[Rfam]
RNA sequence: CUCAGAUAUGGCGACAUGGUCCCAAAGACCAUCAUGGGGAAGCUCUUCGGCUCCGUCUGCUCCCUGAGCGGCGUGCUGGUCAUCGCCCUGCCCGUCCCCGUCAUCGUGUCCAAC
Numbered sequence: 001c002u003c004a005g006a007u008a009u010g011g012c013g014a015c016a017u018g019g020u021c022c023c024a025a026a027g028a029c030c031a032u033c034a035u036g037g038g039g040a041a042g043c044u045c046u047u048c049g050g051c052u053c054c055g056u057c058u059g060c061u062c063c064c065u066g067a068g069c070g071g072c073g074u075g076c077u078g079g080u081c082a083u084c085g086c087c088c089u090g091c092c093c094g095u096c097c098c099c100g101u102c103a104u105c106g107u108g109u110c111c112a113a114c
Base pairs, nucleotide, nucleotide: 002113005110007108008107009106010105011104013102014101015100018097019096021094037077038076040074049063050062
Rfam assigns this 114-nucleotide sequence from Xiphophorus maculatus to the family "Potassium channel RNA editing signal".